Shown here is a 119-nucleotide sequence from Mycolicibacterium sarraceniae, a member of the family "Actinobacteria sRNA Ms_IGR-7". Pairs were carried over by alignment from the consensus structure. The organism belongs to Mycobacterium (subgen. Mycolicibacterium), within Bacteria. It scores 112 bits against the family's covariance model. It is annotated as a small RNA.
[Rfam]
RNA sequence: CGGAAGUGCCUUUCUGAACUGGCCCGAUUGAUGCCUCGAGAACACCAAUCAUCCCAGCUCAGAGGGCACUUUCUUCGUUCCGACACCCCGCAGACAACCAGGUCAGUCGGUGGAUCGAG
Dot-bracket structure: .((((((((((((.(((.((((...(((.(.((.........)).).)))...)))).))))))))))))))).........................(.(.(((.....))).).)..